[Rfam]
RNA: Small nucleolar RNA R11/Z151
Organism: Spinacia oleracea
RNA sequence: GAGUUGAUGAUAAUUUACUUUAUCUUAGCGGAUUUCAGUGAGAUCAAUGAUCUAUGAUCUGAUUGUUACACACACUGAAACUC
Number, nucleotide and partner (000 for none) at each position: 001g083002a082003g081004u080005u079006g000007a000008u000009g000010a000011u000012a000013a000014u000015u000016u000017a000018c000019u000020u000021u000022a000023u000024c000025u000026u000027a000028g000029c000030g000031g000032a000033u000034u000035u000036c000037a000038g000039u000040g000041a000042g000043a000044u000045c000046a000047a000048u000049g000050a000051u000052c000053u000054a000055u000056g000057a000058u000059c000060u000061g000062a000063u000064u000065g000066u000067u000068a000069c000070a000071c000072a000073c000074a000075c000076u000077g000078a000079a005080a004081c003082u002083c001